[Rfam]
Rfam assigns this 108-nucleotide sequence from Aeromicrobium marinum to the family "SAM riboswitch aptamer (S box leader)". The sequence is in the family's curated seed alignment.
Nucleotides: 108
Base pairs, nucleotide, nucleotide: 004105005104006103007102008101013042014041015040016039017038021031022030023029025079026078027077028076043071044070045069046068048067049066051063052062053061075100080097081096082095083094084093085092
Number, partner (000 for none) and nucleotide at each position: 001000c002000a003000c004105u005104c006103a007102u008101c009000a010000c011000g012000a013042g014041g015040g016039g017038u018000g019000g020000a021031g022030g023029g024000a025079a026078c027077g028076g029023c030022c031021c032000g033000c034000u035000g036000a037000u038017a039016c040015c041014c042013c043071a044070g045069c046068a047000a048067c049066c050000a051063g052062u053061c054000g055000g056000u057000c058000u059000u060000c061053g062052a063051c064000c065000a066049g067048g068046u069045g070044c071043u072000a073000c074000g075100u076028c077027c078026g079025u080097c081096c082095c083094g084093g085092a086000g087000u088000c089000c090000g091000c092085u093084c094083c095082g096081g097080g098000g099000a100075a101008g102007a103006u104005g105004a106000c107000c108000u